[Rfam]
RNA sequence: GUGUCGGGCCGUGCCGUCGCCAGCCUGCUGGCUGGAGGAAAGUCCGGGCUUCGCAGAGCACAGCACCGGGUAGUUCCCGGGCGCAUCUCCGGAUGCGACAGAGAGUGCCACAGAAAAUAUACCGCCGCUUUGCGGUAAGGGUGAAAUGGUGAGGUAAGAGCUCACCGGGAAACCGGCAACGGUUUCUGUCCUGGUAAACCUUGCUGGAAGCAAAAUUAAGCAGUGGAUUCGGCUGCUCGCCGGGUAUCCGCGGGUAAAUUGCUGGACCCUGCAGGCAACUGCAGGGCUAGAUUGAUGACGGCAGUAAACAGAACCCGGCUUACCGGCCCGAUUUCCAU
Numbered sequence: 001g002u003g004u005c006g007g008g009c010c011g012u013g014c015c016g017u018c019g020c021c022a023g024c025c026u027g028c029u030g031g032c033u034g035g036a037g038g039a040a041a042g043u044c045c046g047g048g049c050u051u052c053g054c055a056g057a058g059c060a061c062a063g064c065a066c067c068g069g070g071u072a073g074u075u076c077c078c079g080g081g082c083g084c085a086u087c088u089c090c091g092g093a094u095g096c097g098a099c100a101g102a103g104a105g106u107g108c109c110a111c112a113g114a115a116a117a118u119a120u121a122c123c124g125c126c127g128c129u130u131u132g133c134g135g136u137a138a139g140g141g142u143g144a145a146a147u148g149g150u151g152a153g154g155u156a157a158g159a160g161c162u163c164a165c166c167g168g169g170a171a172a173c174c175g176g177c178a179a180c181g182g183u184u185u186c187u188g189u190c191c192u193g194g195u196a197a198a199c200c201u202u203g204c205u206g207g208a209a210g211c212a213a214a215a216u217u218a219a220g221c222a223g224u225g226g227a228u229u230c231g232g233c234u235g236c237u238c239g240c241c242g243g244g245u246a247u248c249c250g251c252g253g254g255u256a257a258a259u260u261g262c263u264g265g266a267c268c269c270u271g272c273a274g275g276c277a278a279c280u281g282c283a284g285g286g287c288u289a290g291a292u293u294g295a296u297g298a299c300g301g302c303a304g305u306a307a308a309c310a311g312a313a314c315c316c317g318g319c320u321u322a323c324c325g326g327c328c329c330g331a332u333u334u335c336c337a338u
Base pairs, nucleotide, nucleotide: 001334003332004331005330006329007328008327009326010325011323012303013302014301015300016299017298018297020035021034022033023032024031025030040321041320042319044318045317046316047315048314049210050209051208052207056238057237058236059235061206062205063204064203065202066080067079068078069077070076081099082097083096084095085094086093087092100201101200105199106198107195108194109193122140123139124136125135126134127133128132148166149165150164151163152162153161167190168187169186170185171184172183173182174181175180214260215259216258217257223251224250225249226248227247228246229243230242231241232240233239267286268285269284270283271282272281273280274279
Bacterial RNase P class A: a 338-nucleotide RNA from Spirochaeta africana. Its family is annotated with dimeric ribonuclease P complex, tRNA processing and ribonuclease P activity in the Gene Ontology.